[Rfam]
RNA sequence: ACUCUAAUGUGUUGCGUAGGCGUUGUGCACAGUGACGUAUUACAUAAUUCCUGUGCAUUUCUCCCACGCAUAGCGUUGAAGU
Numbered sequence: 001a002c003u004c005u006a007a008u009g010u011g012u013u014g015c016g017u018a019g020g021c022g023u024u025g026u027g028c029a030c031a032g033u034g035a036c037g038u039a040u041u042a043c044a045u046a047a048u049u050c051c052u053g054u055g056c057a058u059u060u061c062u063c064c065c066a067c068g069c070a071u072a073g074c075g076u077u078g079a080a081g082u
Stems, first nucleotide, its partner, number of pairs: 003080001005078003009074002013070005019064002022061001025058008
mir-242_2 microRNA precursor family: an 82-nucleotide sequence from Saccoglossus kowalevskii. Lineage of the source: Eukaryota > Opisthokonta > Metazoa > Harrimaniidae > Saccoglossus. The base pairs follow the family's consensus structure, which was predicted with RNAalifold.